The family of this 67-nucleotide RNA sequence from Pipistrellus kuhlii is "mir-9256 microRNA precursor family". NCBI's taxonomy places the organism under Eukaryota, Chordata, Craniata, Laurasiatheria, Pipistrellus. Rfam links the family to the GO terms miRNA-mediated post-transcriptional gene silencing and RISC complex.
[Rfam]
RNA sequence: CUGUACACUGAGUGGCCAGAUUAUUAUGCAUUCAGGAAUCAUAAUAAUCUGGCCACUCAGUGCAUAU
Numbered sequence: 001c002u003g004u005a006c007a008c009u010g011a012g013u014g015g016c017c018a019g020a021u022u023a024u025u026a027u028g029c030a031u032u033c034a035g036g037a038a039u040c041a042u043a044a045u046a047a048u049c050u051g052g053c054c055a056c057u058c059a060g061u062g063c064a065u066a067u
Stems, first nucleotide, its partner, number of pairs: 004064001006062012019049010